This 56-nucleotide sequence from Pseudomonas jinjuensis belongs to the Rfam family "terC RNA". The family's RNA type in Rfam is cis-regulatory element.

RNA sequence: GAGUGACGCCGGGCCCCUCUGACGGUCUGCCUUGACCGCCAUGUCGGAGUCACUUU
Numbered sequence: 001g002a003g004u005g006a007c008g009c010c011g012g013g014c015c016c017c018u019c020u021g022a023c024g025g026u027c028u029g030c031c032u033u034g035a036c037c038g039c040c041a042u043g044u045c046g047g048a049g050u051c052a053c054u055u056u
Stems, first nucleotide, its partner, number of pairs: 006050002009047004023038005
Description: The match comes from Rfam's covariance-model search (52 bits). The base pairs follow the family's consensus structure, which is taken from published work.